[Rfam]
RNA sequence: UUGGGAAUCUGACUUGAAGGAACUUCUGGUGUGAUAUGUGAUUUUGUGAAUCGUAUCACAGCCAGUAGUUACCUACGAAAUGGAUCCCCAC
Numbered sequence: 001u002u003g004g005g006a007a008u009c010u011g012a013c014u015u016g017a018a019g020g021a022a023c024u025u026c027u028g029g030u031g032u033g034a035u036a037u038g039u040g041a042u043u044u045u046g047u048g049a050a051u052c053g054u055a056u057c058a059c060a061g062c063c064a065g066u067a068g069u070u071a072c073c074u075a076c077g078a079a080a081u082g083g084a085u086c087c088c089c090a091c
Base pairs, nucleotide, nucleotide: 003089004088005087007085008084009083010082011081018074019073020072021070022069023068024067026065027064028062030060031059032058033057034056035055036054037053038052